Background
The record is an 83-nucleotide RNA from Alligator mississippiensis, which matches "Mammalian CPEB3 ribozyme" in Rfam. A reference for the family is Salehi-Ashtiani et al. (2006), "A genomewide search for ribozymes reveals an HDV-like sequence in the human CPEB3 gene", Science. The source organism's lineage runs through Eukaryota, Sarcopterygii, Archelosauria, Archosauria and Alligator. A search with the family's covariance model found it, with a score of 52 bits.
[Rfam]
RNA sequence: AGAGGUUUCAAGUUAGAGGCCACAGCAGGAGCGCUCAUGGAUGGUGUGGCCUGUCAGAUUCUGAUGAAUCUGCAAAUUCUGCU
Numbered sequence: 001a002g003a004g005g006u007u008u009c010a011a012g013u014u015a016g017a018g019g020c021c022a023c024a025g026c027a028g029g030a031g032c033g034c035u036c037a038u039g040g041a042u043g044g045u046g047u048g049g050c051c052u053g054u055c056a057g058a059u060u061c062u063g064a065u066g067a068a069u070c071u072g073c074a075a076a077u078u079c080u081g082c083u
Stems, first nucleotide, its partner, number of pairs: 018051004024083007031047005055072007